[Rfam]
Small nucleolar RNA SNORD94: a 137-nucleotide sequence from Equus caballus.
Its family is annotated with RNA processing and nucleolus in the Gene Ontology.
By type it is a C/D-box small nucleolar RNA.
The sequence is in the family's curated seed alignment.
RNA sequence: CAGGCUGUGAUGAUUGGCGCAGGGGUACGGACCUCAGCUGAGUCAUGGGAGCUGAGUGUAUGUGUUUCUCCUUUGUCCUGCAUGUGGCAGGAUAACGGCGAGCACUUACAUGAGACUGAUGCCUUAAUCUGAGCCUG
Number, nucleotide and partner (000 for none) at each position: 001c137002a136003g135004g134005c133006u000007g000008u000009g000010a000011u000012g000013a000014u000015u000016g000017g000018c000019g000020c000021a000022g000023g000024g000025g000026u000027a000028c000029g000030g000031a000032c000033c000034u000035c000036a000037g000038c000039u000040g000041a000042g000043u000044c000045a000046u000047g000048g000049g000050a000051g000052c000053u000054g000055a000056g000057u000058g000059u000060a000061u000062g000063u000064g000065u000066u000067u000068c000069u000070c000071c000072u000073u000074u000075g000076u000077c000078c000079u000080g000081c000082a000083u000084g000085u000086g000087g000088c000089a000090g000091g000092a000093u000094a000095a000096c000097g000098g000099c000100g000101a000102g000103c000104a000105c000106u000107u000108a000109c000110a000111u000112g000113a000114g000115a000116c000117u000118g000119a000120u000121g000122c000123c000124u000125u000126a000127a000128u000129c000130u000131g000132a000133g005134c004135c003136u002137g001